This 61-nucleotide RNA from Caenorhabditis elegans belongs to the Rfam family "microRNA mir-251 microRNA precursor family".
Clan: mir-252 microRNA precursor family.

RNA sequence: UUAAGUAGUGGUGCCGCUCUUAUUAGGUUGAAAAGUAAUAAGAGUAGUUCACUACUUAUCA
Numbered sequence: 001u002u003a004a005g006u007a008g009u010g011g012u013g014c015c016g017c018u019c020u021u022a023u024u025a026g027g028u029u030g031a032a033a034a035g036u037a038a039u040a041a042g043a044g045u046a047g048u049u050c051a052c053u054a055c056u057u058a059u060c061a
Base pairs, nucleotide, nucleotide: 002058003057004056005055006054007053008052009051010050011049013048014047016045017044018043019042020041021040022039023038024037025036
Dot-bracket structure: .((((((((((.((.((((((((((..........)))))))))).))))))))))))...